RNA: Bacillaceae-1 RNA
Nucleotides: 068
Base pairs, nucleotide, nucleotide: 011051012050013049014048015047016046017045026040027039028038029037030036055067056066057065058064
Number, partner (000 for none) and nucleotide at each position: 001000g002000g003000g004000a005000a006000g007000g008000u009000u010000u011051c012050u013049u014048c015047u016046g017045c018000u019000a020000a021000a022000a023000a024000c025000g026040u027039g028038c029037a030036c031000g032000u033000c034000c035000u036030g037029u038028g039027c040026a041000c042000a043000a044000c045017g046016c047015a048014g049013a050012a051011g052000u053000c054000a055067g056066c057065a058064c059000c060000u061000c062000c063000u064058g065057u066056g067055c068000a